[Rfam]
RNA sequence: UCCUGACAACCACAUUGGGUGGUUGACACUAGCCACGACAGGAGUUUGAAAUG
Numbered sequence: 001u002c003c004u005g006a007c008a009a010c011c012a013c014a015u016u017g018g019g020u021g022g023u024u025g026a027c028a029c030u031a032g033c034c035a036c037g038a039c040a041g042g043a044g045u046u047u048g049a050a051a052u053g
Base pairs, nucleotide, nucleotide: 002042003041004040005039007025008024009023010022011021
Background:
A member of the RNA family "Mu-gpT-DE RNA", 53 nucleotides long. Rfam classes the family as a small RNA. Pairs were carried over by alignment from the consensus structure, which is taken from published work.